Small Cajal body specific RNA 4: a 128-nucleotide sequence from Mesocricetus auratus. Rfam classes the family as a small Cajal body RNA. The source organism's lineage runs through Eukaryota, Bilateria, Vertebrata, Cricetidae and Mesocricetus. The match comes from Rfam's covariance-model search (96 bits). On this family, see Darzacq et al., EMBO J 2002: "Cajal body-specific small nuclear RNAs: a novel class of 2'-O-methylation and pseudouridylation guide RNAs".
RNA sequence: CUUGAAGGACCAAGAAGGCUUAUUCUGAUGAAGCAAGACUUUGCUGAUACACUCCUCCUAGACAAAGCAGUGGAGAGAGCAGCCCUUAACAUAGAAAACUACAGGGAUGACUGUAUUACCCAACAUUU
Numbered sequence: 001c002u003u004g005a006a007g008g009a010c011c012a013a014g015a016a017g018g019c020u021u022a023u024u025c026u027g028a029u030g031a032a033g034c035a036a037g038a039c040u041u042u043g044c045u046g047a048u049a050c051a052c053u054c055c056u057c058c059u060a061g062a063c064a065a066a067g068c069a070g071u072g073g074a075g076a077g078a079g080c081a082g083c084c085c086u087u088a089a090c091a092u093a094g095a096a097a098a099c100u101a102c103a104g105g106g107a108u109g110a111c112u113g114u115a116u117u118a119c120c121c122a123a124c125a126u127u128u
Base pairs, nucleotide, nucleotide: 002061003060004058006056007055008054009053017045018044019043022040024038025037026036070119071118078112079111080109081108083106084105085104086103091100
From the family's description: scaRNAs are a specific class of small nuclear RNAs which localise to the Cajal bodies and guide the modification of RNA polymerase II transcribed spliceosomal RNAs U1, U2, U4, U5 and U12. ACA26 belongs to the H/ACA box class of guide RNAs as it has the predicted hairpin-hinge-hairpin-tail structure, conserved H/ACA-box motifs and is found associated with GAR1. Gene Ontology terms of the family: RNA processing, Cajal body and nucleolus. Its Rfam clan is "SCARNA4 clan".